The family of this 112-nucleotide RNA sequence from Gracilibacillus boraciitolerans is "TPP riboswitch aptamer (THI element)". Pairs were carried over by alignment from the consensus structure, which is taken from published work. It scores 70 bits against the family's covariance model. Lineage of the source: Bacteria > Bacillati > Bacillota > Bacilli > Gracilibacillus boraciitolerans.
[Rfam]
RNA sequence: GUAAAAAUGUAGGGGGGACCGGUGUUGCCGGUUGAGAUAGUAUCCGUAAAGAUACUGACUCUUGGAACCUGAUCUGGUUAGGACCAGCGUAGGGAACAUAUAAGAUAUUAGA
Numbered sequence: 001g002u003a004a005a006a007a008u009g010u011a012g013g014g015g016g017g018a019c020c021g022g023u024g025u026u027g028c029c030g031g032u033u034g035a036g037a038u039a040g041u042a043u044c045c046g047u048a049a050a051g052a053u054a055c056u057g058a059c060u061c062u063u064g065g066a067a068c069c070u071g072a073u074c075u076g077g078u079u080a081g082g083a084c085c086a087g088c089g090u091a092g093g094g095a096a097c098a099u100a101u102a103a104g105a106u107a108u109u110a111g112a
Stems, first nucleotide, its partner, number of pairs: 007099004011062004018032005039056005068093004074087004